This 82-nucleotide sequence from Steinernema carpocapsae belongs to the Rfam family "SmY spliceosomal RNA". The family's consensus secondary structure is taken from published work. Rfam 15.1 lists 408 matches to the family in 67 species.
[Rfam]
RNA sequence: GUCCAUAUCAUCAUCAUUCCAGGGUAUUUUUACAAGACCCGAAGUACAAUUUUUGGAGACCCAGUUCAUUAGAACUCGGGUA
Numbered sequence: 001g002u003c004c005a006u007a008u009c010a011u012c013a014u015c016a017u018u019c020c021a022g023g024g025u026a027u028u029u030u031u032a033c034a035a036g037a038c039c040c041g042a043a044g045u046a047c048a049a050u051u052u053u054u055g056g057a058g059a060c061c062c063a064g065u066u067c068a069u070u071a072g073a074a075c076u077c078g079g080g081u082a
Stems, first nucleotide, its partner, number of pairs: 022040003027035002059081004063076005